A member of the RNA family "Small nucleolar RNA SNORA14" from Triplophysa rosa, 135 nucleotides long.

RNA sequence: AUGCAUUCUUUCACAAACCCCAGUAGUUGCUUGUAGCUGUGGGGACAAGAAAGAAUGCGAGAGAAAACGCAAGAAUCUUCCUAAGCUAAGGGUCUUCUUGACGUGACCUUCGGCUAUUUCACAUCUUGAACAUUC
Numbered sequence: 001a002u003g004c005a006u007u008c009u010u011u012c013a014c015a016a017a018c019c020c021c022a023g024u025a026g027u028u029g030c031u032u033g034u035a036g037c038u039g040u041g042g043g044g045a046c047a048a049g050a051a052a053g054a055a056u057g058c059g060a061g062a063g064a065a066a067a068c069g070c071a072a073g074a075a076u077c078u079u080c081c082u083a084a085g086c087u088a089a090g091g092g093u094c095u096u097c098u099u100g101a102c103g104u105g106a107c108c109u110u111c112g113g114c115u116a117u118u119u120c121a122c123a124u125c126u127u128g129a130a131c132a133u134u135c
Base pairs, nucleotide, nucleotide: 003058004057005056006055009050010049011048018044019043020042021041022040025038026037027036063135064134070128071127072126073125074124084115085114086113087112089110090109092107093106097103
The family has 18 seed sequences and 848 matches in Rfam 15.1. It is annotated as an H/ACA-box small nucleolar RNA. Rfam's curators write: ACA14 is a member of the H/ACA class of snoRNA that guide the sites of modification of uridines to pseudouridines. Rfam links the family to the GO terms RNA processing and nucleolus.